[Rfam]
RNA: Small nucleolar RNA SNORA3/SNORA45 family
Organism: Chrysochloris asiatica
RNA sequence: CCCAAGAUAGGGAAAUAUCUUGAUCCACUCAUGUCCUGGUGUGCUAGUCCUUAGAAAGGAUCUGCUGGUCUUGAUUCACUGGUGGGGGUAAACAGUACCCACCCUUGUCCCCAGAUCUGAAAUGUGC
Number, nucleotide and partner (000 for none) at each position: 001c000002c054003c000004a052005a051006g050007a048008u000009a000010g000011g045012g044013a000014a000015a042016u041017a040018u039019c038020u000021u000022g035023a034024u033025c000026c000027a000028c000029u000030c000031a000032u000033g024034u023035c022036c000037u000038g019039g018040u017041g016042u015043g000044c012045u011046a000047g000048u007049c000050c006051u005052u004053a000054g002055a000056a000057a000058g000059g000060a000061u000062c000063u000064g000065c119066u000067g117068g116069u115070c114071u113072u000073g111074a000075u000076u000077c000078a108079c107080u000081g105082g104083u000084g102085g000086g100087g099088g098089u097090a000091a000092a000093c000094a000095g000096u000097a089098c088099c087100c086101a000102c084103c000104c082105u081106u000107g079108u078109c000110c000111c073112c000113a071114g070115a069116u068117c067118u000119g065120a000121a000122a000123u000124g000125u000126g000127c000